Rfam assigns this 107-nucleotide RNA sequence from Kaistia sp. 32K to the family "Rhizobiales sRNA Atu_At1".
It scores 111 bits against the family's covariance model.
Rfam classes the family as a small RNA.
The source organism's lineage runs through Bacteria, Alphaproteobacteria, Hyphomicrobiales, Kaistiaceae and Kaistia.
On this family, see Wilms et al., RNA Biol 2012: "Deep sequencing uncovers numerous small RNAs on all four replicons of the plant pathogen Agrobacterium tumefaciens".
RNA sequence: AUGCGGCGCGCGUCAACCGGACGUGGCGGCAUGGGGAACAGGGCGAUUUUUCCGGUUUCUUGCCCUGACCAACGCAAGGGUAGUCGAGCCCCUAUCCCGCCCGCGCC
Numbered sequence: 001a002u003g004c005g006g007c008g009c010g011c012g013u014c015a016a017c018c019g020g021a022c023g024u025g026g027c028g029g030c031a032u033g034g035g036g037a038a039c040a041g042g043g044c045g046a047u048u049u050u051u052c053c054g055g056u057u058u059c060u061u062g063c064c065c066u067g068a069c070c071a072a073c074g075c076a077a078g079g080g081u082a083g084u085c086g087a088g089c090c091c092c093u094a095u096c097c098c099g100c101c102c103g104c105g106c107c
Base pairs, nucleotide, nucleotide: 006106007105008104009103011023012022013021014020025101026100027099028097029096033092034091035090036089039067040066041065042064043063044062045061068081069080070079